[Rfam]
Nucleotides: 094
Stems, first nucleotide, its partner, number of pairs: 006082004011044004016038001017030005050074003055068004
Number, partner (000 for none) and nucleotide at each position: 001000g002000g003000a004000g005000u006082c007081c008080g009079c010000c011044a012043g013042g014041g015000g016038u017030a018029u019028c020027c021026c022000g023000c024000g025000a026021g027020g028019g029018a030017u031000u032000g033000a034000g035000a036000u037000c038016a039000c040000a041014c042013c043012c044011u045000u046000g047000g048000a049000a050074c051073c052072u053000g054000c055068c056067c057066g058065g059000u060000u061000g062000a063000u064000a065058c066057c067056g068055g069000c070000g071000a072052a073051g074050g075000g076000a077000g078000c079009g080008c081007g082006g083000a084000g085000c086000g087000c088000c089000a090000a091000g092000u093000g094000g